[Rfam]
Rfam assigns this 111-nucleotide sequence from Microlunatus sagamiharensis to the family "SAM (S-adenosyl methionine) riboswitch aptamer". Pairs were carried over by alignment from the consensus structure, which is taken from published work. It scores 92 bits against the family's covariance model. About the family: SAM-IV is a mRNA element that regulates gene expression via direct sensing of S-adenosylmethionine (SAM or AdoMet).
RNA sequence: GGUCACGAGCAUCAGCGACAAGCCCUGGCUGGCUGAUCGGCAACCCUCGCACGAGCGGUGGGGUGCCCCAGGUGACGACCCGGCAGGGGAGCAGCCCUGCAAGCGCCGACC
Numbered sequence: 001g002g003u004c005a006c007g008a009g010c011a012u013c014a015g016c017g018a019c020a021a022g023c024c025c026u027g028g029c030u031g032g033c034u035g036a037u038c039g040g041c042a043a044c045c046c047u048c049g050c051a052c053g054a055g056c057g058g059u060g061g062g063g064u065g066c067c068c069c070a071g072g073u074g075a076c077g078a079c080c081c082g083g084c085a086g087g088g089g090a091g092c093a094g095c096c097c098u099g100c101a102a103g104c105g106c107c108g109a110c111c
Stems, first nucleotide, its partner, number of pairs: 001080004009038001011037006021030002039067003044063003048058001050057001083100006